[Rfam]
Shown here is a 508-nucleotide RNA from Saccharothrix tamanrassetensis, a member of the family "Saccharopolyspora sRNA 350". Rfam links the family to the GO term regulation of secondary metabolite biosynthetic process. By type it is an antisense RNA. Taxonomically the source falls in Saccharothrix (Bacteria, Bacillati, Actinomycetes, Pseudonocardiales). Rfam 15.1 lists 1,170 matches to the family in 705 species. Pairs were carried over by alignment from the consensus structure, which was predicted with RNAfold.
RNA sequence: UUGGCGGUGAACUCCCACUCGCCCUGCGGACCGGACAGCACCUUCUCGCCGAGGUACUCGCCGCUGGCCAGCACGCCGAGCACGGUGUGGUCGCCGUACUCGCCCCGGCCGAUCUUGUUCACCUUGCCGUGCGCGAUGAGCACGACCUGGUCCUGGGGACGGCCGGUCUCCACGAUCACGUCGCCGGGCUGGUACUCGCGCUGCCGGAACCGGUCCGCCAGGGCGCCCAGCGCCUGCGCGUCCUCGAAGCCGCGCAGCAGCGGCAGCUCGGUCAGCUCCUGCGGGAUGACCCGGACGUCCGCGCCGGUGUUGGUGAAGGUCAACCGCCCGUCGCCGACCGCGUAGCUGAGCCUGCGGUUGACCCGGUAGGCGCCACCGGUGGCCUGCACCCAGGGGAGCACCUUGAGCAGCCACCGGGAGGUGAUGCCCUGCAUCUGCGGGACGGACUUGGUGGUCGUGGCCAGGUUCCGGGCCGCCGCUGUGCCGAGGCUCAGCCGGGGCCGUUCGA
Numbered sequence: 001u002u003g004g005c006g007g008u009g010a011a012c013u014c015c016c017a018c019u020c021g022c023c024c025u026g027c028g029g030a031c032c033g034g035a036c037a038g039c040a041c042c043u044u045c046u047c048g049c050c051g052a053g054g055u056a057c058u059c060g061c062c063g064c065u066g067g068c069c070a071g072c073a074c075g076c077c078g079a080g081c082a083c084g085g086u087g088u089g090g091u092c093g094c095c096g097u098a099c100u101c102g103c104c105c106c107g108g109c110c111g112a113u114c115u116u117g118u119u120c121a122c123c124u125u126g127c128c129g130u131g132c133g134c135g136a137u138g139a140g141c142a143c144g145a146c147c148u149g150g151u152c153c154u155g156g157g158g159a160c161g162g163c164c165g166g167u168c169u170c171c172a173c174g175a176u177c178a179c180g181u182c183g184c185c186g187g188g189c190u191g192g193u194a195c196u197c198g199c200g201c202u203g204c205c206g207g208a209a210c211c212g213g214u215c216c217g218c219c220a221g222g223g224c225g226c227c228c229a230g231c232g233c234c235u236g237c238g239c240g241u242c243c244u245c246g247a248a249g250c251c252g253c254g255c256a257g258c259a260g261c262g263g264c265a266g267c268u269c270g271g272u273c274a275g276c277u278c279c280u281g282c283g284g285g286a287u288g289a290c291c292c293g294g295a296c297g298u299c300c301g302c303g304c305c306g307g308u309g310u311u312g313g314u315g316a317a318g319g320u321c322a323a324c325c326g327c328c329c330g331u332c333g334c335c336g337a338c339c340g341c342g343u344a345g346c347u348g349a350g351c352c353u354g355c356g357g358u359u360g361a362c363c364c365g366g367u368a369g370g371c372g373c374c375a376c377c378g379g380u381g382g383c384c385u386g387c388a389c390c391c392a393g394g395g396g397a398g399c400a401c402c403u404u405g406a407g408c409a410g411c412c413a414c415c416g417g418g419a420g421g422u423g424a425u426g427c428c429c430u431g432c433a434u435c436u437g438c439g440g441g442a443c444g445g446a447c448u449u450g451g452u453g454g455u456c457g458u459g460g461c462c463a464g465g466u467u468c469c470g471g472g473c474c475g476c477c478g479c480u481g482u483g484c485c486g487a488g489g490c491u492c493a494g495c496c497g498g499g500g501c502c503g504u505u506c507g508a
Stems, first nucleotide, its partner, number of pairs: 006390004011385001014382002021325001025322001026320002031315001036312007047303003051299002054233002057230002060227001062225003065111004075103001077102004082097005118221002122217001127212001129210002132206001133204003138199001140197001144195001158185001160183001162177001166173002235295001237293001240290003244286002251281002254278001256277003261270002329342003351379002354376001356374002362370002391431005397425001399423003403418002407415001437476004443470004447465006477507002481501002484499002488495001